Shown here is a 45-nucleotide sequence from Cellvibrio sp. KY-GH-1, a member of the family "Guanidine-II riboswitch aptamer (mini-ykkC)".
The match comes from Rfam's covariance-model search (36 bits).
Simpler in structure and has fewer highly conserved nucleotide positions than the ykkC-yxkD leader.
Its family is annotated with regulation of gene expression in the Gene Ontology.
The base pairs follow the family's consensus structure, which is taken from published work.
[Rfam]
RNA sequence: CAGUGGACGACCACUGUCGUAAAAACUACCUGCGGGACGACCCGC
Numbered sequence: 001c002a003g004u005g006g007a008c009g010a011c012c013a014c015u016g017u018c019g020u021a022a023a024a025a026c027u028a029c030c031u032g033c034g035g036g037a038c039g040a041c042c043c044g045c
Stems, first nucleotide, its partner, number of pairs: 001016006032045005
Dot-bracket structure: ((((((....))))))...............(((((....)))))